[Rfam]
This 159-nucleotide RNA sequence from Durio zibethinus belongs to the Rfam family "mir-172 microRNA precursor family".
Lineage of the source: Eukaryota > eudicotyledons > malvids > Malvales > Durio.
Nucleotides: 159
Stems, first nucleotide, its partner, number of pairs: 010150005016144015032128002
Number, partner (000 for none) and nucleotide at each position: 001000a002000u003000g004000u005000u006000u007000g008000u009000u010150g011149a012148u013147g014146c015000a016144g017143c018142a019141u020140c021139a022138u023137c024136a025135a026134g027133a028132u029131u030130c031000c032128c033127a034000u035000u036000u037000g038000a039000a040000a041000g042000g043000a044000a045000a046000c047000u048000u049000u050000c051000g052000a053000g054000g055000a056000a057000a058000g059000g060000a061000a062000g063000u064000g065000a066000u067000u068000u069000g070000g071000g072000u073000a074000c075000c076000a077000c078000u079000a080000a081000u082000c083000c084000a085000c086000u087000a088000u089000a090000c091000c092000a093000c094000c095000a096000c097000c098000u099000g100000g101000c102000c103000u104000c105000c106000a107000a108000a109000g110000a111000a112000g113000c114000c115000c116000u117000u118000a119000c120000u121000a122000g123000a124000g125000u126000u127033u128032g129000u130030g131029a132028a133027u134026c135025u136024u137023g138022a139021u140020g141019a142018u143017g144016c145000c146014g147013c148012a149011u150010c151000u152000g153000c154000a155000a156000a157000c158000a159000c
The family's consensus secondary structure was predicted with PFOLD. The family has 11 seed sequences and 2,076 matches in Rfam 15.1. A search with the family's covariance model found it, with a score of 72 bits. From the family's description: mir-172 has been experimentally verified in Arabidopsis thaliana. This family is thought to target mRNAs coding for APETALA2-like transcription factors. The mature sequence is excised from the 3' arm of the hairpin.